Source information
A member of the RNA family "Small nucleolar RNA SNORD113/SNORD114 family" from Equus caballus, 72 nucleotides long. Gene Ontology terms of the family: RNA processing and nucleolus. From the family's description: The imprinted human domain at 14q32 contains two clusters of tandemly repeated small nucleolar RNAs named 14q(I) and 14q(II) snoRNAs. These two clusters are named SNORD113 and SNORD114 respectively in the HGNC approved gene symbol nomenclature. The snoRNAs found in both clusters are clearly related and are represented here by a single family. These snoRNAs are intron encoded and are processed from the tissue-specific non-coding human MEG8 RNA, which lies downstream of the imprinted genes DLK1 and GTL2. snoRNAs 14q(I) and 14q(II) differ from previously identified C/D box snoRNAs in their expression profiles and lack of complementarity to rRNA and snRNA. Homologues of these snoRNAs are found in the imprinted non-coding mouse transcript Rian, and in the rat non-coding Bsr (brain-specific repetitive) RNA. For this family Rfam cites "Identification of tandemly-repeated C/D snoRNA genes at the imprinted human 14q32 domain reminiscent of those at the Prader-Willi/Angelman syndrome region" (Cavaille et al., Hum Mol Genet, 2002). The base pairs follow the family's consensus structure, which is taken from published work.

RNA sequence: UGGAUCAGUGAUUACCACUGAUGGUGUUUGUGUCAUAUACGAUGAAUACGUGUCUGGAACUCUGAGGUCCAA
Numbered sequence: 001u002g003g004a005u006c007a008g009u010g011a012u013u014a015c016c017a018c019u020g021a022u023g024g025u026g027u028u029u030g031u032g033u034c035a036u037a038u039a040c041g042a043u044g045a046a047u048a049c050g051u052g053u054c055u056g057g058a059a060c061u062c063u064g065a066g067g068u069c070c071a072a
Stems, first nucleotide, its partner, number of pairs: 002070005